[Rfam]
Rfam assigns this 127-nucleotide RNA from Jaculus jaculus to the family "Small nucleolar RNA SNORA40". About the family: The snoRNA ACA 40 belongs to the H/ACA family of snoRNAs and guides the pseudouridylation of 28S rRNA subunit at position U4565. The organism belongs to Jaculus, within Eukaryota. Its family is annotated with nucleolus and RNA processing in the Gene Ontology. The family has 28 seed sequences and 2,550 matches in Rfam 15.1. It scores 108 bits against the family's covariance model. Rfam classes the family as an H/ACA-box small nucleolar RNA.
RNA sequence: AGCACUUGUACCUGUCUUUGUUGAAGUGAUGGACAAAGACUUAAAGACAGGUACAAAAAUGAAUCCUCUUUUGCAAUACAGAGCUCAUUGUUAAGUAUGGAUUUUGAUACAUAUAAGAAGGAAUAUG
Numbered sequence: 001a002g003c004a005c006u007u008g009u010a011c012c013u014g015u016c017u018u019u020g021u022u023g024a025a026g027u028g029a030u031g032g033a034c035a036a037a038g039a040c041u042u043a044a045a046g047a048c049a050g051g052u053a054c055a056a057a058a059a060u061g062a063a064u065c066c067u068c069u070u071u072u073g074c075a076a077u078a079c080a081g082a083g084c085u086c087a088u089u090g091u092u093a094a095g096u097a098u099g100g101a102u103u104u105u106g107a108u109a110c111a112u113a114u115a116a117g118a119a120g121g122a123a124u125a126u127g
Stems, first nucleotide, its partner, number of pairs: 002054001004052006014040008063124002066121002069118005079106005085100004